Rfam assigns this 140-nucleotide RNA from Devosia pacifica to the family "Alphaproteobacterial sRNA BjrC1505". It is annotated as a small RNA. Taxonomically the source falls in Devosia (Bacteria, Pseudomonadati, Alphaproteobacteria, Hyphomicrobiales). A reference for the family is Madhugiri et al. (2012), "Small RNAs of the Bradyrhizobium/Rhodopseudomonas lineage and their analysis", RNA Biol. The base pairs follow the family's consensus structure.
RNA sequence: GUUUAUCUUAACCAGGCAUUAAUGAAUCUUGGUUAAGUUGAGCUUAUUCAGAGUUUUCUGAAUGUUGUCAGAGUGGUUUCUCCCUCUGUUUGACGCCUCCCUGUAAACUUUCGAGAGCCGUUCAUCGCGGCUCUUUUUCU
Numbered sequence: 001g002u003u004u005a006u007c008u009u010a011a012c013c014a015g016g017c018a019u020u021a022a023u024g025a026a027u028c029u030u031g032g033u034u035a036a037g038u039u040g041a042g043c044u045u046a047u048u049c050a051g052a053g054u055u056u057u058c059u060g061a062a063u064g065u066u067g068u069c070a071g072a073g074u075g076g077u078u079u080c081u082c083c084c085u086c087u088g089u090u091u092g093a094c095g096c097c098u099c100c101c102u103g104u105a106a107a108c109u110u111u112c113g114a115g116a117g118c119c120g121u122u123c124a125u126c127g128c129g130g131c132u133c134u135u136u137u138u139c140u
Base pairs, nucleotide, nucleotide: 001043002042003041004040020035021034022033023032025030047062048061049060050059071086072085073084075083076082093104094103095102113135114134115133116132117131118130119129120128121127